[Rfam]
Description: The family of this 83-nucleotide sequence from Paraburkholderia tagetis is "Betaproteobacteria toxic small RNA". For this family Rfam cites "A vast collection of microbial genes that are toxic to bacteria" (Kimelman et al., Genome Res, 2012). It scores 52 bits against the family's covariance model.
RNA sequence: UGUCUCCUCCAUGUCUCCAUCGACAUGGUUUAAGCCCGCCUCCGCUGGUCAUAUCAGCGAAUUUUUUUGGCGGGCUUUUUCUU
Number, nucleotide and partner (000 for none) at each position: 001u000002g000003u000004c000005u000006c000007c000008u000009c028010c027011a026012u025013g024014u023015c022016u000017c000018c000019a000020u000021c000022g015023a014024c013025a012026u011027g010028g009029u000030u000031u000032a000033a076034g075035c074036c073037c072038g071039c070040c069041u000042c000043c000044g000045c000046u000047g000048g000049u000050c000051a000052u000053a000054u000055c000056a000057g000058c000059g000060a000061a000062u000063u000064u000065u000066u000067u000068u000069g040070g039071c038072g037073g036074g035075c034076u033077u000078u000079u000080u000081c000082u000083u000